[Rfam]
RNA sequence: ACGGGCCGGCGCGGACGCCCGUUCAGACGGUAUUCGUCCAAGUCCGC
Numbered sequence: 001a002c003g004g005g006c007c008g009g010c011g012c013g014g015a016c017g018c019c020c021g022u023u024c025a026g027a028c029g030g031u032a033u034u035c036g037u038c039c040a041a042g043u044c045c046g047c
Stems, first nucleotide, its partner, number of pairs: 001022006011047005026038005
A member of the RNA family "chrB-b RNA" from Novosphingobium sp. AP12, 47 nucleotides long. It is one of the family's seed sequences. Pairs were carried over by alignment from the consensus structure, which is taken from published work. Rfam classes the family as a cis-regulatory element. The source organism's lineage runs through Bacteria, Pseudomonadati, Alphaproteobacteria, Sphingomonadaceae and Novosphingobium.